The record is a 194-nucleotide RNA from Gordonia soli, which matches "c-di-AMP riboswitch aptamer (ydaO/yuaA leader)" in Rfam.
It scores 49 bits against the family's covariance model.
The organism belongs to Gordonia soli, within Bacteria.
Rfam links the family to the GO terms regulation of gene expression and cyclic-di-AMP binding.
From the family's description: This family represents a conserved RNA structure found upstream of the ydaO and yuaA genes in Bacillus subtilis and related genes in other bacteria.
[Rfam]
RNA sequence: AGCCUCGUUCCGCCGACAGGAUGACCAGAACAUCUGGGAACGAGGGCGGGGGACCCACCAUCUCCCCUGAGACGGGCGAUCGCAGUCUGAUCGCCCUUGGGGUUAAGUACCGGAUCGGCCUCGCCGACACCGGACCGAGCAGCCUCUCGCUCGAACCCGACAGCUGACUUCGCAGGCGCGUGGAGAGAGGGAAU
Numbered sequence: 001a002g003c004c005u006c007g008u009u010c011c012g013c014c015g016a017c018a019g020g021a022u023g024a025c026c027a028g029a030a031c032a033u034c035u036g037g038g039a040a041c042g043a044g045g046g047c048g049g050g051g052g053a054c055c056c057a058c059c060a061u062c063u064c065c066c067c068u069g070a071g072a073c074g075g076g077c078g079a080u081c082g083c084a085g086u087c088u089g090a091u092c093g094c095c096c097u098u099g100g101g102g103u104u105a106a107g108u109a110c111c112g113g114a115u116c117g118g119c120c121u122c123g124c125c126g127a128c129a130c131c132g133g134a135c136c137g138a139g140c141a142g143c144c145u146c147u148c149g150c151u152c153g154a155a156c157c158c159g160a161c162a163g164c165u166g167a168c169u170u171c172g173c174a175g176g177c178g179c180g181u182g183g184a185g186a187g188a189g190g191g192a193a194u
Base pairs, nucleotide, nucleotide: 003045004044005043006042007041008040009039010038011037046173047172048171049170050169051168056099057098100158101157102156108134110133111132112131137152138151139150140149